[Rfam]
RNA sequence: GGCGUUCCGCAGUACGUUUAAACUGCGGG
Number, nucleotide and partner (000 for none) at each position: 001g000002g000003c016004g015005u014006u000007c028008c027009g026010c025011a024012g023013u022014a005015c004016g003017u000018u000019u000020a000021a000022a013023c012024u011025g010026c009027g008028g007029g000
RNA: Pseudoknot of upstream pseudoknot domain (UPD) of the 3'UTR
Organism: Furovirus tritici